RNA sequence: CCCCACAGACAGGGGAGCGCCGCCAGGCGCUGAGAGUGCGCCUAGGCGCAGACCCUCGGACCUGAUCCGGUUAGCACCGGCGUAGGGAGUCGGGAUCUCCUCGGC
Numbered sequence: 001c002c003c004c005a006c007a008g009a010c011a012g013g014g015g016a017g018c019g020c021c022g023c024c025a026g027g028c029g030c031u032g033a034g035a036g037u038g039c040g041c042c043u044a045g046g047c048g049c050a051g052a053c054c055c056u057c058g059g060a061c062c063u064g065a066u067c068c069g070g071u072u073a074g075c076a077c078c079g080g081c082g083u084a085g086g087g088a089g090u091c092g093g094g095a096u097c098u099c100c101u102c103g104g105c
Stems, first nucleotide, its partner, number of pairs: 006093001008091003011056004017030005037050005061086004067080004
A member of the RNA family "TPP riboswitch aptamer (THI element)" from Nostocoides jenkinsii, 105 nucleotides long. A search with the family's covariance model found it, with a score of 68 bits. Its family is annotated with thiamine pyrophosphate binding in the Gene Ontology. Taxonomically the source falls in Nostocoides jenkinsii (Bacteria, Actinomycetes, Micrococcales, Nostocoides).